[Rfam]
RNA: chrB-b RNA
RNA sequence: AGGGGACAUAGCAGCCUCCCCUCGAGAUGGCAGCCAUCCAUCCAAGUGCUGG
Numbered sequence: 001a002g003g004g005g006a007c008a009u010a011g012c013a014g015c016c017u018c019c020c021c022u023c024g025a026g027a028u029g030g031c032a033g034c035c036a037u038c039c040a041u042c043c044a045a046g047u048g049c050u051g052g
Base pairs, nucleotide, nucleotide: 001022002021003020004019005018006017012051013050014049015048026042027041028040029039030038